[Rfam]
RNA sequence: UGCCCAGUGCACUGUAUGGCUUUUUAUUCCUAUCUGACUGUACUGAUAGUUCAUAUAGGGAUGGAAGCCAUGCACUGCGCUG
Numbered sequence: 001u002g003c004c005c006a007g008u009g010c011a012c013u014g015u016a017u018g019g020c021u022u023u024u025u026a027u028u029c030c031u032a033u034c035u036g037a038c039u040g041u042a043c044u045g046a047u048a049g050u051u052c053a054u055a056u057a058g059g060g061a062u063g064g065a066a067g068c069c070a071u072g073c074a075c076u077g078c079g080c081u082g
Base pairs, nucleotide, nucleotide: 005082006081007080008079009078010077011076013074014073015072016071017070018069019068020067021066022065023064026062027061028060029059030058031057032056033055035053036052037051
This 82-nucleotide sequence from Takifugu rubripes belongs to the Rfam family "mir-135 microRNA precursor family". NCBI's taxonomy places the organism under Eukaryota, Metazoa, Vertebrata, Percomorphaceae, Takifugu. On this family, see Lagos-Quintana et al., Curr Biol 2002: "Identification of tissue-specific microRNAs from mouse". The family has 88 seed sequences and 2,125 matches in Rfam 15.1. Pairs were carried over by alignment from the consensus structure, which was predicted with PFOLD. Rfam links the family to the GO terms RISC complex and gene silencing by miRNA.